[Rfam]
RNA sequence: CCGACUUCAUCUUAGGGGAGUAGUCGCUUAAUCCAAGUGAUUAAGGCUUAUAUCAACAUCGUUGAGCCUCAGCUCAUGGUAUAAGCAGCUUAGCAGCCUGACGAGACCUUUGAUAUUAGCCUUUGUACCUUUUUAAUUGGGGUCAGCUGCAAAGGUU
Number, nucleotide and partner (000 for none) at each position: 001c000002c000003g000004a000005c000006u000007u000008c000009a000010u000011c000012u000013u000014a000015g000016g000017g000018g000019a000020g000021u000022a000023g000024u000025c000026g000027c000028u044029u043030a042031a000032u000033c000034c000035a000036a000037g000038u000039g000040a000041u000042u030043a029044a028045g000046g086047c085048u084049u083050a082051u081052a080053u079054c078055a077056a000057c000058a000059u000060c000061g000062u000063u076064g075065a074066g073067c072068c000069u000070c000071a000072g067073c066074u065075c064076a063077u055078g054079g053080u052081a051082u050083a049084a048085g047086c046087a157088g156089c155090u154091u153092a000093g000094c000095a000096g000097c000098c000099u000100g000101a000102c000103g000104a000105g000106a000107c000108c000109u000110u000111u000112g000113a000114u000115a000116u000117u000118a000119g000120c000121c000122u000123u000124u000125g000126u000127a000128c000129c000130u000131u000132u000133u000134u000135a000136a000137u000138u000139g000140g000141g000142g000143u000144c000145a000146g000147c000148u000149g000150c000151a000152a000153a091154g090155g089156u088157u087